[Rfam]
Nucleotides: 102
Stems, first nucleotide, its partner, number of pairs: 002102003006034005015025004036067004069097003075091007
Number, partner (000 for none) and nucleotide at each position: 001000u002102c003101g004100c005000a006034u007033c008032c009031g010030c011000u012000a013000a014000u015025c016024g017023g018022u019000c020000a021000a022018g023017c024016c025015g026000u027000g028000u029000u030010g031009c032008g033007g034006a035000a036067g037066g038065u039064u040000a041000a042000u043000c044000a045000a046000c047000c048000a049000g050000c051000c052000a053000c054000a055000u056000c057000c058000c059000g060000u061000u062000g063000u064039g065038g066037c067036c068000a069097g070096c071095u072000a073000a074000u075091g076090u077089u078088u079087c080086c081085u082000u083000a084000a085081g086080g087079g088078a089077a090076a091075c092000g093000g094000a095071g096070g097069u098000c099000a100004g101003c102002g
Rfam assigns this 102-nucleotide RNA from Polaromonas sp. A23 to the family "SucA RNA motif". The base pairs follow the family's consensus structure, which is taken from published work. Rfam links the family to the GO term regulation of translation. The organism belongs to Polaromonas, within Bacteria.